[Rfam]
RNA sequence: CCAGAGGGUCGGCCAAUCGCUUUGAUGUGCAAGCAUUGAGGAGGAAAGUCCGGGCUCCACGAUUUAGAGGUGCCGGAUAACGUCCGGCGGGCAGGGGAGUGAUCGCCUGUUCAGGGAUAGUGCAACAGAAAGCAGGUCGCAACGCCUUUGGGCAUGUGACGAUGAAAGGGUGCGGUAAGAGCGCACCGCGGGUCUGGCAACAGGUCUGGCACGGUAAACCCCACCUGGAGCAAAACCAAAUAGGGGCGGCUCAUGGCGAAUUCGGCCUGCUGCCCGGGUUGGUUGCUUGAGCUGCGCAGCAAUGCACAGCCUAGAUGAAUGAUUGGCUAUCUCGCGCCAUCUUUUGAUUGGAGCGGGAGGACAGAACCCGGCUUACAGACCCUCUGGAAUU
Dot-bracket structure: ((((((((((((((((((.(((((((((....)))))))))....[[[.[[[[[((((......[..((((((((((.....)))))((((((((..........))))))).)((...((((.............(.(((..(((....))).)))...).......((((((.......))))))(((((((((....)))))))).)...))..)))))))))))))...((((......((((((.....(((..]....)))..)))))).....))))......((((.(((....))).))))..........))))))).......................................]]]]]]]].).))))))))))....
Bacterial RNase P class A: a 391-nucleotide RNA sequence from Parasphingorhabdus halotolerans. Gene Ontology terms of the family: tRNA processing, ribonuclease P activity and dimeric ribonuclease P complex. The family's RNA type in Rfam is ribozyme. Its Rfam clan is "RNaseP clan". The source organism's lineage runs through Bacteria, Pseudomonadati, Pseudomonadota, Alphaproteobacteria and Parasphingorhabdus.